[Rfam]
The family of this 81-nucleotide RNA from Myotis lucifugus is "mir-574 microRNA precursor family". A reference for the family is Lui et al. (2007), "Patterns of known and novel small RNAs in human cervical cancer", Cancer Res. The family's consensus secondary structure was predicted with RNAalifold. Its family is annotated with RISC complex and miRNA-mediated post-transcriptional gene silencing in the Gene Ontology.
RNA sequence: AGGCCUGGAGAGAGAAGCAGAGUCUGAUCCGUAGCCUCGGUCGCAGCUGUUGAUCAGCCCUUACCUCUCUCUUUCUCUUGG
Numbered sequence: 001a002g003g004c005c006u007g008g009a010g011a012g013a014g015a016a017g018c019a020g021a022g023u024c025u026g027a028u029c030c031g032u033a034g035c036c037u038c039g040g041u042c043g044c045a046g047c048u049g050u051u052g053a054u055c056a057g058c059c060c061u062u063a064c065c066u067c068u069c070u071c072u073u074u075c076u077c078u079u080g081g
Stems, first nucleotide, its partner, number of pairs: 008073008017064001019062002022059001024057006032049004
Dot-bracket structure: .......((((((((.(.((.(.((((((..((((..........))))..)))))).).)).).))))))))........